[Rfam]
RNA sequence: GACAUAUAUUUUAAAUGGUUUAUAGUUCACUCAGCUUGAAGGUUGGGCUCAUAUUUAUGUAUAUAUCACGACAAUGUUCGUCCUGUAAACAUAAGUACUACCGGCAUUUUUAGCGUAAUCGCCGUUAAGGCUUAAAAUUAAAUAUUUACAGGAUUUAUAUCAUGUCAAAAACUACUGGUACCGUUAAAUGGUUCAACUCUGAUAAAGGUUUCGGAUUUAUUGAGCAAGAAUCAGGUCCAGAUGUGUUUGUACACUUCCGUGCUAUUAACUCUGAAGGUUUCAAAACUUUAGACGAAGGCCAGAAAGUUGCUUUCACUGUUACUCAAGGCCAAAAAGGCCCACAAGCUGAAGACGUAACUGUUGUAGGCUAACAUUUUUUACAGUAUUUAUACUGUAAAAACUUUAAAAAGCUGUGAUUGUUCACAGCUUUUUUGU
Numbered sequence: 001g002a003c004a005u006a007u008a009u010u011u012u013a014a015a016u017g018g019u020u021u022a023u024a025g026u027u028c029a030c031u032c033a034g035c036u037u038g039a040a041g042g043u044u045g046g047g048c049u050c051a052u053a054u055u056u057a058u059g060u061a062u063a064u065a066u067c068a069c070g071a072c073a074a075u076g077u078u079c080g081u082c083c084u085g086u087a088a089a090c091a092u093a094a095g096u097a098c099u100a101c102c103g104g105c106a107u108u109u110u111u112a113g114c115g116u117a118a119u120c121g122c123c124g125u126u127a128a129g130g131c132u133u134a135a136a137a138u139u140a141a142a143u144a145u146u147u148a149c150a151g152g153a154u155u156u157a158u159a160u161c162a163u164g165u166c167a168a169a170a171a172c173u174a175c176u177g178g179u180a181c182c183g184u185u186a187a188a189u190g191g192u193u194c195a196a197c198u199c200u201g202a203u204a205a206a207g208g209u210u211u212c213g214g215a216u217u218u219a220u221u222g223a224g225c226a227a228g229a230a231u232c233a234g235g236u237c238c239a240g241a242u243g244u245g246u247u248u249g250u251a252c253a254c255u256u257c258c259g260u261g262c263u264a265u266u267a268a269c270u271c272u273g274a275a276g277g278u279u280u281c282a283a284a285a286c287u288u289u290a291g292a293c294g295a296a297g298g299c300c301a302g303a304a305a306g307u308u309g310c311u312u313u314c315a316c317u318g319u320u321a322c323u324c325a326a327g328g329c330c331a332a333a334a335a336g337g338c339c340c341a342c343a344a345g346c347u348g349a350a351g352a353c354g355u356a357a358c359u360g361u362u363g364u365a366g367g368c369u370a371a372c373a374u375u376u377u378u379u380a381c382a383g384u385a386u387u388u389a390u391a392c393u394g395u396a397a398a399a400a401c402u403u404u405a406a407a408a409a410g411c412u413g414u415g416a417u418u419g420u421u422c423a424c425a426g427c428u429u430u431u432u433u434g435u
Stems, first nucleotide, its partner, number of pairs: 004020001007017003026227002030224004041218002045216001048213001049208002052205001055202003059197002063193001065192003074158002083151007091110001093108002121131003161178001164175002230320001232318003240248002253307004260301002262298002265292002268289001273286001327339004343369001346366003350362001374400003382393004405432012
cspA thermoregulator: a 435-nucleotide RNA sequence from Parashewanella spongiae. The match comes from Rfam's covariance-model search (89 bits). For this family Rfam cites "The cspA mRNA is a thermosensor that modulates translation of the cold-shock protein CspA" (Giuliodori et al., Mol Cell, 2010). The organism belongs to Parashewanella, within Bacteria.